About this RNA:
This 120-nucleotide RNA sequence from Klebsormidium nitens belongs to the Rfam family "Small nucleolar RNA SNORD14". For this family Rfam cites "An essential domain in Saccharomyces cerevisiae U14 snoRNA is absent in vertebrates, but conserved in other yeasts" (Samarsky et al., Nucleic Acids Res, 1996). Lineage of the source: Eukaryota > Viridiplantae > Klebsormidiophyceae > Klebsormidiales > Klebsormidium. The base pairs follow the family's consensus structure, which was predicted with PFOLD. U14 small nucleolar RNA (U14 snoRNA) is required for early cleavages of eukaryotic precursor rRNAs. Gene Ontology terms of the family: nucleolus and RNA processing. Rfam 15.1 lists 4,559 matches to the family in 936 species.
RNA sequence: UGCCGAUGAUGAGACGUCCAAAUGGGUCGUUUCUCAAAACAUUCGCAGUACCCGCCCCGAGCGCUCUCGCCUUGCCGGGCUUGAGAGCGGAUGCGGCUCCUUCCUUGGAUGUCUGAGGCA
Numbered sequence: 001u002g003c004c005g006a007u008g009a010u011g012a013g014a015c016g017u018c019c020a021a022a023u024g025g026g027u028c029g030u031u032u033c034u035c036a037a038a039a040c041a042u043u044c045g046c047a048g049u050a051c052c053c054g055c056c057c058c059g060a061g062c063g064c065u066c067u068c069g070c071c072u073u074g075c076c077g078g079g080c081u082u083g084a085g086a087g088c089g090g091a092u093g094c095g096g097c098u099c100c101u102u103c104c105u106u107g108g109a110u111g112u113c114u115g116a117g118g119c120a
Stems, first nucleotide, its partner, number of pairs: 001120004063088006